[Rfam]
RNA sequence: AUCGCGGCGGUCUCUCAUUCGCUUGGUGCAGGUCGGGACCUGCCUCGCCGGCGACAAUGACGUCUGCUGACGGUGACGGUGGCGUAUCGAUAGAUAUACAUGUUGUUUAUGACGAAGUUUUGGUCCCGCCUUGCAUCAACUGAAUCGGAGACUGCGGUGAAU
Numbered sequence: 001a002u003c004g005c006g007g008c009g010g011u012c013u014c015u016c017a018u019u020c021g022c023u024u025g026g027u028g029c030a031g032g033u034c035g036g037g038a039c040c041u042g043c044c045u046c047g048c049c050g051g052c053g054a055c056a057a058u059g060a061c062g063u064c065u066g067c068u069g070a071c072g073g074u075g076a077c078g079g080u081g082g083c084g085u086a087u088c089g090a091u092a093g094a095u096a097u098a099c100a101u102g103u104u105g106u107u108u109a110u111g112a113c114g115a116a117g118u119u120u121u122g123g124u125c126c127c128g129c130c131u132u133g134c135a136u137c138a139a140c141u142g143a144a145u146c147g148g149a150g151a152c153u154g155c156g157g158u159g160a161a162u
Stems, first nucleotide, its partner, number of pairs: 013149002017145004023139010034128005040122001
Source information: This 162-nucleotide RNA sequence from Nicotiana attenuata belongs to the Rfam family "MIR168 microRNA precursor family". The match comes from Rfam's covariance-model search (92 bits). NCBI's taxonomy places the organism under Eukaryota, Magnoliopsida, Gunneridae, Nicotianeae, Nicotiana. A reference for the family is Lu et al. (2005), "Novel and mechanical stress-responsive MicroRNAs in Populus trichocarpa that are absent from Arabidopsis", Plant Cell. Gene Ontology terms of the family: RISC complex and miRNA-mediated post-transcriptional gene silencing.